[Rfam]
RNA sequence: GGGUCGAUGAUGACGUGACCACUGCGCAAUCUGAGUUCUAGGAACCAGGUGAUGGAGUGGAUGCUGAGAGCGGACUGAGACCU
Numbered sequence: 001g002g003g004u005c006g007a008u009g010a011u012g013a014c015g016u017g018a019c020c021a022c023u024g025c026g027c028a029a030u031c032u033g034a035g036u037u038c039u040a041g042g043a044a045c046c047a048g049g050u051g052a053u054g055g056a057g058u059g060g061a062u063g064c065u066g067a068g069a070g071c072g073g074a075c076u077g078a079g080a081c082c083u
Stems, first nucleotide, its partner, number of pairs: 002082004038048002041045001
small Cajal body-specific RNA 18: an 83-nucleotide sequence from Canis lupus. The family's RNA type in Rfam is small Cajal body RNA. Rfam describes the family as follows. scaRNAs are a specific class of small nuclear RNAs which localise to the Cajal bodies and guide the modification of RNA polymerase II transcribed spliceosomal RNAs U1, U2, U4, U5 and U12. This C/D box domain U91 (also known as U4-8) was identified by Darzacq and is predicted to guide the 2'O-ribose methylation of U4 snRNA C8. Pairs were carried over by alignment from the consensus structure, which was predicted with PFOLD. The source organism's lineage runs through Eukaryota, Eumetazoa, Chordata, Euteleostomi and Canis lupus. The family has 20 seed sequences and 406 matches in Rfam 15.1. Gene Ontology terms of the family: nucleolus, RNA processing and Cajal body. Rfam's curators put it in the seed alignment. The literature on the family includes a 2004 paper in Curr Biol by Tycowski et al., "Guide RNAs with 5' caps and novel box C/D snoRNA-like domains for modification of snRNAs in metazoa".